A member of the RNA family "MIR5998 microRNA precursor family" from Arabidopsis thaliana, 171 nucleotides long. Lineage of the source: Eukaryota > Viridiplantae > Pentapetalae > malvids > Arabidopsis.
[Rfam]
RNA sequence: UGAGAAAACAAAUUGGAACAGUUUGUGUUUUGUUUUGUGAUGUUGGAACAAAUUGGAAGAAUUGCCUCCAAGAAGUCAGAGUUUGAGAAUUGUACAUGGCGGCGACGGUGGAGAGUAACGAAUCCAACAAAACACAAAACAAAACACAAACUGUUCCAAUUUGUUUUCUCC
Numbered sequence: 001u002g003a004g005a006a007a008a009c010a011a012a013u014u015g016g017a018a019c020a021g022u023u024u025g026u027g028u029u030u031u032g033u034u035u036u037g038u039g040a041u042g043u044u045g046g047a048a049c050a051a052a053u054u055g056g057a058a059g060a061a062u063u064g065c066c067u068c069c070a071a072g073a074a075g076u077c078a079g080a081g082u083u084u085g086a087g088a089a090u091u092g093u094a095c096a097u098g099g100c101g102g103c104g105a106c107g108g109u110g111g112a113g114a115g116u117a118a119c120g121a122a123u124c125c126a127a128c129a130a131a132a133c134a135c136a137a138a139a140c141a142a143a144a145c146a147c148a149a150a151c152u153g154u155u156c157c158a159a160u161u162u163g164u165u166u167u168c169u170c171c
Stems, first nucleotide, its partner, number of pairs: 002170038041129007068102002075095002077092003